Shown here is a 185-nucleotide sequence from Mastacembelus armatus, a member of the family "Small nucleolar RNA SNORA81".
RNA sequence: CCCUUCCCUCCAAAGCACCCUGCUAAAAUUGCAGCAGCCAAACCUCACAGGUUAUAGCUAAUGUGGCCGUGUAAGCAUGGGUACACCAGGGAAGGAGAACAAAGGCACAGUAUCGGAACUGAGACUUGGAGGGACCUCUUUCUUAAUGUCCAGUGUCCUUUGUCUCAAGAGCCUGUGUUACAUGU
Number, nucleotide and partner (000 for none) at each position: 001c000002c000003c000004u000005u000006c000007c000008c000009u000010c000011c000012a000013a000014a000015g000016c000017a000018c081019c080020c000021u077022g076023c075024u074025a000026a000027a000028a070029u069030u000031g067032c000033a000034g000035c000036a000037g058038c057039c000040a055041a000042a052043c051044c050045u049046c000047a000048c000049a045050g044051g043052u042053u000054a000055u040056a000057g038058c037059u000060a000061a000062u000063g000064u000065g000066g000067c031068c000069g029070u028071g000072u000073a000074a024075g023076c022077a021078u000079g000080g019081g018082u000083a000084c000085a000086c000087c000088a000089g000090g000091g000092a000093a000094g000095g000096a000097g000098a000099a000100c000101a000102a000103a000104g179105g178106c177107a176108c175109a174110g173111u000112a000113u000114c000115g000116g000117a000118a000119c000120u000121g000122a000123g000124a000125c000126u000127u000128g000129g154130a000131g000132g151133g150134a149135c000136c000137u000138c000139u000140u000141u000142c000143u000144u000145a000146a000147u000148g000149u134150c133151c132152a000153g000154u129155g000156u000157c000158c000159u000160u000161u000162g000163u000164c000165u000166c000167a000168a000169g000170a000171g000172c000173c110174u109175g108176u107177g106178u105179u104180a000181c000182a000183u000184g000185u000
Pairs were carried over by alignment from the consensus structure, which was predicted with WAR. A reference for the family is Gu et al. (2005), "A novel experimental approach for systematic identification of box H/ACA snoRNAs from eukaryotes", Nucleic Acids Res. Rfam classes the family as an H/ACA-box small nucleolar RNA. Its family is annotated with RNA processing and nucleolus in the Gene Ontology. The organism belongs to Mastacembelus, within Eukaryota.